A member of the RNA family "Glycine riboswitch aptamer" from Alcaligenaceae bacterium 429, 86 nucleotides long. Clan: Glycine riboswitch clan.
[Rfam]
RNA sequence: AAAUGGUUCAGGAAAGAGACUUCUUACGAAGCGCCGACGGAGCAACCGCCCCGGAAUCUCUCAGGCAAAAGGAUCCUGAAACCAUG
Numbered sequence: 001a002a003a004u005g006g007u008u009c010a011g012g013a014a015a016g017a018g019a020c021u022u023c024u025u026a027c028g029a030a031g032c033g034c035c036g037a038c039g040g041a042g043c044a045a046c047c048g049c050c051c052c053g054g055a056a057u058c059u060c061u062c063a064g065g066c067a068a069a070a071g072g073a074u075c076c077u078g079a080a081a082c083c084a085u086g
Stems, first nucleotide, its partner, number of pairs: 007080007020031004033066003036062002040060003046054002